[Rfam]
RNA sequence: GCCGGGACCAGUUGGGACCAGUCAUGGGCAAAAUAAUUUUUUUUUGUCCAUUCUUGCAGUCUUCCUAGAGCAAAAUGGAGGUCUCUGUCUGCUUUAGAACAGACAACUAAAUCAGAUCGUUCCCCUCCAUACACG
Numbered sequence: 001g002c003c004g005g006g007a008c009c010a011g012u013u014g015g016g017a018c019c020a021g022u023c024a025u026g027g028g029c030a031a032a033a034u035a036a037u038u039u040u041u042u043u044u045u046g047u048c049c050a051u052u053c054u055u056g057c058a059g060u061c062u063u064c065c066u067a068g069a070g071c072a073a074a075a076u077g078g079a080g081g082u083c084u085c086u087g088u089c090u091g092c093u094u095u096a097g098a099a100c101a102g103a104c105a106a107c108u109a110a111a112u113c114a115g116a117u118c119g120u121u122c123c124c125c126u127c128c129a130u131a132c133a134c135g
Base pairs, nucleotide, nucleotide: 004065005064006063009059011057012056024051025050026049027048028047029046035042036041077128078127079126080125081124085119087117088116089115091113093111094110095109096108097107
Dot-bracket structure: ...(((..(.((...........((((((.....((....))...))))))....)).)...)))...........(((((...(.(((.(.(((((.........))))).).))).)....))))).......